RNA sequence: UCUCUAUUUACCACACUCUCUCGCCGGUCAGAGUGCCGAUAGAGUGUGUUAAAUGAAGAGA
Number, nucleotide and partner (000 for none) at each position: 001u059002c058003u057004c000005u055006a054007u053008u000009u000010a050011c000012c048013a047014c046015a045016c044017u043018c000019u041020c000021u039022c038023g000024c000025c000026g000027g000028u000029c000030a000031g000032a000033g000034u000035g000036c000037c000038g022039a021040u000041a019042g000043a017044g016045u015046g014047u013048g012049u000050u010051a000052a000053a007054u006055g005056a000057a003058g002059a001060g000061a000
This 61-nucleotide RNA from Pristionchus pacificus belongs to the Rfam family "mir-8364 microRNA precursor family".
Taxonomically the source falls in Pristionchus (Eukaryota, Eumetazoa, Protostomia, Diplogasteroidea).
The base pairs follow the family's consensus structure, which was predicted with RNAalifold.
Gene Ontology terms of the family: RISC complex and miRNA-mediated post-transcriptional gene silencing.